[Rfam]
RNA sequence: UUUUGUGAGAGCCGUUUGAAUCAAGUAUUCUAUUGAUUCAAACGGCUCUUGACG
Numbered sequence: 001u002u003u004u005g006u007g008a009g010a011g012c013c014g015u016u017u018g019a020a021u022c023a024a025g026u027a028u029u030c031u032a033u034u035g036a037u038u039c040a041a042a043c044g045g046c047u048c049u050u051g052a053c054g
Stems, first nucleotide, its partner, number of pairs: 006051018

The record is a 54-nucleotide RNA sequence from Sedum sarmentosum, which matches "Plastid-ccsA-ndhD-2 3UTR RNA" in Rfam. For this family Rfam cites "Retrograde signaling in plants: A critical review focusing on the GUN pathway and beyond" (Richter et al., Plant Commun, 2023). The sequence is in the family's curated seed alignment. The family's RNA type in Rfam is cis-regulatory element. Plastid ccsA-ndhD-2 is a non-coding RNA (ncRNA) recognised in plastids.